[Rfam]
RNA sequence: GGGACCAGGGGUGCUUGUUCACAGGCUGAGAAAGUCCCUUUGAACCUGAACAGGGUAAUGCCUGCGCAGGGAGUGUC
Numbered sequence: 001g002g003g004a005c006c007a008g009g010g011g012u013g014c015u016u017g018u019u020c021a022c023a024g025g026c027u028g029a030g031a032a033a034g035u036c037c038c039u040u041u042g043a044a045c046c047u048g049a050a051c052a053g054g055g056u057a058a059u060g061c062c063u064g065c066g067c068a069g070g071g072a073g074u075g076u077c
Base pairs, nucleotide, nucleotide: 003077004076005075007039008038009037010036012033013026014025015024016023017022045070046069047068048067051064052063053062054061
The family of this 77-nucleotide RNA sequence is "TPP riboswitch aptamer (THI element)".
The base pairs follow the family's consensus structure, which is taken from published work.
The sequence is in the family's curated seed alignment.